[Rfam]
RNA sequence: GAGGCGGAAUCUGAAAAGCCUGAAUGAAUAGAGUAAGAA
Numbered sequence: 001g002a003g004g005c006g007g008a009a010u011c012u013g014a015a016a017a018g019c020c021u022g023a024a025u026g027a028a029u030a031g032a033g034u035a036a037g038a039a
Stems, first nucleotide, its partner, number of pairs: 002021004010038003

DUF805b RNA: a 39-nucleotide RNA from Kordia sp. SMS9.
The family's consensus secondary structure is taken from published work.
The organism belongs to Kordia, within Bacteria.